[Rfam]
Rfam assigns this 63-nucleotide RNA sequence from Anolis carolinensis to the family "Small nucleolar RNA SNORD75".
Rfam links the family to the GO terms nucleolus and RNA processing.
The literature on the family includes a 2002 paper in Mol Cell Biol by Galardi et al., "Purified box C/D snoRNPs are able to reproduce site-specific 2'-O-methylation of target RNA in vitro".
NCBI's taxonomy places the organism under Eukaryota, Eumetazoa, Dipnotetrapodomorpha, Unidentata, Anolis.
RNA sequence: AGCCAAUGAUGUUUCUAAGAGUAGUGGACAGAAGAAUUUUCUGACAUAUAUUGCACUGAGGCU
Numbered sequence: 001a002g003c004c005a006a007u008g009a010u011g012u013u014u015c016u017a018a019g020a021g022u023a024g025u026g027g028a029c030a031g032a033a034g035a036a037u038u039u040u041c042u043g044a045c046a047u048a049u050a051u052u053g054c055a056c057u058g059a060g061g062c063u
Stems, first nucleotide, its partner, number of pairs: 001063004

It scores 57 bits against the family's covariance model.